[Rfam]
RNA sequence: GCCGGGAGCAAUCCUGUAACCGCAAGGGGCAGUGGUGUGGAAGGGCCCCAUGACCGCUCUGAACCGAUCCUUCGCGCUAGUGGCUAGUCCUGAGCAGAGUGGGCGGCGCUUGUCGGUGCUUGCUUGACGGUGGGCACCUACGGGCAUGAUGUGGGGGGCACCGCAUGAGGCUGGAAACAGAGCAGUGAAUACUCCCCUCCGCCUUGCGGCUGCCAGAUCACGUGGCCUAGCGUUGGAUUGGGCUCAAUCAGGGCGAUCAUUGGGACACGACCUCACCGCGU
Dot-bracket structure: (((((((....))))....((....))))).((((((.((..(.(.((.((((.((((((((...(..(....((((((..(((((((.((..((((.((((((((.((((((.((((((((((....)))))))))).))))))(...)..(((((......(((....(((....)))....)))....)).))).)))))).))..)))).))...)).)))))))))))......)...)...)))))))).))))..)).).)..)).))))))..
RNA: Metazoan signal recognition particle RNA
Organism: Haematococcus lacustris